[Rfam]
RNA sequence: ACAAUCCCGUUGGGAGAAGCCGGUGGAUACCGGUGCCGAAGGAGCAACCGCCCCGGAAACUCUCAGGCAAAAGGACCAACGGAAUACU
Numbered sequence: 001a002c003a004a005u006c007c008c009g010u011u012g013g014g015a016g017a018a019g020c021c022g023g024u025g026g027a028u029a030c031c032g033g034u035g036c037c038g039a040a041g042g043a044g045c046a047a048c049c050g051c052c053c054c055g056g057a058a059a060c061u062c063u064c065a066g067g068c069a070a071a072a073g074g075a076c077c078a079a080c081g082g083a084a085u086a087c088u
Base pairs, nucleotide, nucleotide: 007082008081009080010079011078012077013076020033021032022031023030035068036067037066038064039063042062043061044060048056049055
The family of this 88-nucleotide RNA sequence from Parahoeflea halophila is "Glycine riboswitch aptamer". NCBI's taxonomy places the organism under Bacteria, Pseudomonadati, Pseudomonadota, Rhizobiaceae, Parahoeflea. The pairing is the family consensus, mapped onto this sequence.